A member of the RNA family "MIR396 microRNA precursor family" from Carpinus fangiana, 143 nucleotides long. It scores 94 bits against the family's covariance model.
[Rfam]
RNA sequence: CUUUGUAUUCUUCCACAGCUUUCUUGAACUGCAUCUAUAUAUAUAUGAGGAUCGAGGAGCCUGAUCUUGCAUGCUAGAGAGACUAUUUUUUUUUUUUUAAUAUUUUUGCUGCGGUUCAAUAAAGCUGUGGGAAGAUACAGACA
Numbered sequence: 001c002u003u004u005g006u007a008u009u010c011u012u013c014c015a016c017a018g019c020u021u022u023c024u025u026g027a028a029c030u031g032c033a034u035c036u037a038u039a040u041a042u043a044u045a046u047g048a049g050g051a052u053c054g055a056g057g058a059g060c061c062u063g064a065u066c067u068u069g070c071a072u073g074c075u076a077g078a079g080a081g082a083c084u085a086u087u088u089u090u091u092u093u094u095u096u097u098u099a100a101u102a103u104u105u106u107u108g109c110u111g112c113g114g115u116u117c118a119a120u121a122a123a124g125c126u127g128u129g130g131g132a133a134g135a136u137a138c139a140g141a142c143a
Base pairs, nucleotide, nucleotide: 003140004139005138006137007136013130014129015128017126018125019124020123021122022121024119025118026117027116029114030113031112032111033110